[Rfam]
RNA: Small nucleolar RNA SNORA56
Organism: Geotrypetes seraphini
RNA sequence: UAGCAGACAGUUAUCCCUUUCUAGCCUGUCAUCUUGUGGCUCUAGAGGGAGUCAGUCUGCAAAAAUGACUUGGAAGUUCUGCCACUGUCCAGCACAGCUAUGUGCUGCUGCUGGUUCCAGACUUUGCAUACAGAU
Numbered sequence: 001u002a003g004c005a006g007a008c009a010g011u012u013a014u015c016c017c018u019u020u021c022u023a024g025c026c027u028g029u030c031a032u033c034u035u036g037u038g039g040c041u042c043u044a045g046a047g048g049g050a051g052u053c054a055g056u057c058u059g060c061a062a063a064a065a066u067g068a069c070u071u072g073g074a075a076g077u078u079c080u081g082c083c084a085c086u087g088u089c090c091a092g093c094a095c096a097g098c099u100a101u102g103u104g105c106u107g108c109u110g111c112u113g114g115u116u117c118c119a120g121a122c123u124u125u126g127c128a129u130a131c132a133g134a135u
Stems, first nucleotide, its partner, number of pairs: 003060006020046005025039002070128001073125004078121003087115003093110002097106001